[Rfam]
RNA: c-di-GMP-I riboswitch aptamer
Organism: Candidatus Brocadia sinica
Nucleotides: 101
Base pairs, nucleotide, nucleotide: 012037013036017032018031019030020029021028022027040095041094042093043092046091047090048089050085051084052081053080054079055078
Number, partner (000 for none) and nucleotide at each position: 001000a002000u003000a004000c005000g006000a007000u008000a009000a010000a011000g012037g013036c014000a015000a016000a017032c018031c019030c020029u021028g022027a023000g024000u025000g026000a027022u028021c029020a030019g031018g032017g033000g034000a035000c036013g037012c038000a039000a040095a041094g042093u043092a044000a045000c046091a047090g048089g049000a050085u051084c052081u053080c054079u055078g056000g057000u058000a059000u060000a061000c062000c063000c064000g065000g066000c067000g068000a069000a070000c071000u072000a073000g074000c075000g076000a077000a078055c079054a080053g081052a082000c083000a084051g085050a086000c087000a088000g089048c090047c091046u092043u093042a094041c095040u096000g097000c098000c099000g100000a101000a